[Rfam]
RNA: transfer-messenger RNA
RNA sequence: GGGGGCGUACUGGCUUCGACGUGGAUCGGACGUACCCUGGGGCAUGCCGAGGAGACAGCAAUCCUCGUAAAACCUGCUGUAAAAAAGUUAGUUGCCAACGACGACAACUACGCACUGGCUGCCUAAAAACCAGCCUGCUCCCCAUCAGUCGAGCCUGCGCUUCUGAACCGGGGAUCAUCUAGCAGGAUCGCAGCAUGUCGUGCAUCAGGGCACCGCUGUUAAAUCAAACUGAGGCUGGUUGCUGCAUGUGCCCUGCCGCUCGGGCGGUGCAGUAACGAGAAAAAAUCGAGUGGCUAAGCAUGUAGAACCAGGAUCUGAUGGUUUGCGGACGCGGGUUCGACUCCCGCCGCCUCCACCA
Numbered sequence: 001g002g003g004g005g006c007g008u009a010c011u012g013g014c015u016u017c018g019a020c021g022u023g024g025a026u027c028g029g030a031c032g033u034a035c036c037c038u039g040g041g042g043c044a045u046g047c048c049g050a051g052g053a054g055a056c057a058g059c060a061a062u063c064c065u066c067g068u069a070a071a072a073c074c075u076g077c078u079g080u081a082a083a084a085a086a087g088u089u090a091g092u093u094g095c096c097a098a099c100g101a102c103g104a105c106a107a108c109u110a111c112g113c114a115c116u117g118g119c120u121g122c123c124u125a126a127a128a129a130c131c132a133g134c135c136u137g138c139u140c141c142c143c144a145u146c147a148g149u150c151g152a153g154c155c156u157g158c159g160c161u162u163c164u165g166a167a168c169c170g171g172g173g174a175u176c177a178u179c180u181a182g183c184a185g186g187a188u189c190g191c192a193g194c195a196u197g198u199c200g201u202g203c204a205u206c207a208g209g210g211c212a213c214c215g216c217u218g219u220u221a222a223a224u225c226a227a228a229c230u231g232a233g234g235c236u237g238g239u240u241g242c243u244g245c246a247u248g249u250g251c252c253c254u255g256c257c258g259c260u261c262g263g264g265c266g267g268u269g270c271a272g273u274a275a276c277g278a279g280a281a282a283a284a285a286u287c288g289a290g291u292g293g294c295u296a297a298g299c300a301u302g303u304a305g306a307a308c309c310a311g312g313a314u315c316u317g318a319u320g321g322u323u324u325g326c327g328g329a330c331g332c333g334g335g336u337u338c339g340a341c342u343c344c345c346g347c348c349g350c351c352u353c354c355a356c357c358a
Base pairs, nucleotide, nucleotide: 001354002353003352004351005350006349007348020327021326022325023324024323025322026321027320028319032316034314036312037311038310039309040308043302044301045300046299047298048067049066050065051064052063055080056079057078058077059076060075115137117135118134119133120132121131139174140173141172142171143170145166146165147164148163154186155185156184157183158182191218192217193216194215200236203233205231238276239275240274241273242272243271244270245269246268247267251264252263253262255294256293257292258291259288331347332346333345334344335343